[Rfam]
RNA sequence: UCGUUAAGUGAUGACGUGACAGACGAAAUAUCACGUCAUAACACCUAGUCACAAACACCUCAUUGCUCGGUCACCCUUUUCAAUGACGUGGCAAUGGCAUGUCAGUGACAAGACAUGAUGACAUGACACUUAAUCUGACACGUCAUCACUUAAUGGAA
Numbered sequence: 001u002c003g004u005u006a007a008g009u010g011a012u013g014a015c016g017u018g019a020c021a022g023a024c025g026a027a028a029u030a031u032c033a034c035g036u037c038a039u040a041a042c043a044c045c046u047a048g049u050c051a052c053a054a055a056c057a058c059c060u061c062a063u064u065g066c067u068c069g070g071u072c073a074c075c076c077u078u079u080u081c082a083a084u085g086a087c088g089u090g091g092c093a094a095u096g097g098c099a100u101g102u103c104a105g106u107g108a109c110a111a112g113a114c115a116u117g118a119u120g121a122c123a124u125g126a127c128a129c130u131u132a133a134u135c136u137g138a139c140a141c142g143u144c145a146u147c148a149c150u151u152a153a154u155g156g157a158a
Base pairs, nucleotide, nucleotide: 001156002155003154004153005152006151007150008149009148010147011146012145013144014143015142016141017140018139020137021136022135023134026131027130029128031126032125033124035122036121037120038119039118041116045112046111048109049108050107051106052105055102056101057100070087071086072085073084
This 158-nucleotide RNA sequence from Glycine max belongs to the Rfam family "MIR4371 microRNA precursor family". The family is grouped with related families in Rfam's "MIR4387 microRNA precursor clan". A search with the family's covariance model found it, with a score of 114 bits. Rfam 15.1 lists 321 matches to the family in 4 species. NCBI's taxonomy places the organism under Eukaryota, Streptophyta, Streptophytina, rosids, Glycine subgen. Soja.